[Rfam]
RNA sequence: CUGCGCAGCCGGGGAGUUAGCGGUGCCCUGUACCUGCAAUCCGCUACAGCAGGGGUGAUACCAAACUGAGGGCUUUUCUUUGCAGAGCUGCCUUCUGUAAGUGGCGUUGACGUCUGGGUCUUACGCAACAGGAAUCUGUGAACCGUGUCAGGUCAGGAAUGGAGCAGCACUAAGCAGAACCUUCUGUGUGCCGUAAGGGUGCCUGGGCCGAGUUAACUGCAGGAGUAACGUCUGUGGAGGGAGUUCGAAGGGCGGUGCGCUU
Numbered sequence: 001c002u003g004c005g006c007a008g009c010c011g012g013g014g015a016g017u018u019a020g021c022g023g024u025g026c027c028c029u030g031u032a033c034c035u036g037c038a039a040u041c042c043g044c045u046a047c048a049g050c051a052g053g054g055g056u057g058a059u060a061c062c063a064a065a066c067u068g069a070g071g072g073c074u075u076u077u078c079u080u081u082g083c084a085g086a087g088c089u090g091c092c093u094u095c096u097g098u099a100a101g102u103g104g105c106g107u108u109g110a111c112g113u114c115u116g117g118g119u120c121u122u123a124c125g126c127a128a129c130a131g132g133a134a135u136c137u138g139u140g141a142a143c144c145g146u147g148u149c150a151g152g153u154c155a156g157g158a159a160u161g162g163a164g165c166a167g168c169a170c171u172a173a174g175c176a177g178a179a180c181c182u183u184c185u186g187u188g189u190g191c192c193g194u195a196a197g198g199g200u201g202c203c204u205g206g207g208c209c210g211a212g213u214u215a216a217c218u219g220c221a222g223g224a225g226u227a228a229c230g231u232c233u234g235u236g237g238a239g240g241g242a243g244u245u246c247g248a249a250g251g252g253c254g255g256u257g258c259g260c261u262u
Base pairs, nucleotide, nucleotide: 003260004259005258006257007256008056009055010054011029012028013027014026016024017023018022033053034052035051036050037049061255062254066250067249070246071245072244073243074242076241077240078239079238080237081236082235083234084233085232089227090226093224094223095222096221097220098219101217102216103214104213105212112208113207114206115205116204117203118202119201120197121196122195123194124193125192126188127187129186130185131184132183133182135178136177137176138175139174145170146169147168148167153162154161155160
Bacterial large signal recognition particle RNA: a 262-nucleotide sequence from Blautia faecicola. Gene Ontology terms of the family: signal recognition particle, plasma membrane targeting and SRP-dependent cotranslational protein targeting to membrane, signal sequence recognition. Rfam describes the family as follows. The signal recognition particle (SRP) is a universally conserved ribonucleoprotein involved in the co-translational targeting of proteins to membranes. The family's consensus secondary structure is taken from published work.